[Rfam]
RNA sequence: ACGCAAGAGUAGGGGUUUCUUUCGGCCUCCAGCGGAUAAUAAAGAGUUGUAGGCCGGCGGAAACUACUUGCUUUUACGU
Dot-bracket structure: ....((((.(((((((((((.(((((((.(((..............))).))))))).))))))).)))).))))....
Numbered sequence: 001a002c003g004c005a006a007g008a009g010u011a012g013g014g015g016u017u018u019c020u021u022u023c024g025g026c027c028u029c030c031a032g033c034g035g036a037u038a039a040u041a042a043a044g045a046g047u048u049g050u051a052g053g054c055c056g057g058c059g060g061a062a063a064c065u066a067c068u069u070g071c072u073u074u075u076a077c078g079u
Stems, first nucleotide, its partner, number of pairs: 005075004010070004014065007022057007030049003

The record is a 79-nucleotide RNA from Tribolium castaneum, which matches "mir-2796 microRNA precursor family" in Rfam. Rfam's curators put it in the seed alignment. The family's consensus secondary structure was predicted with RNAalifold.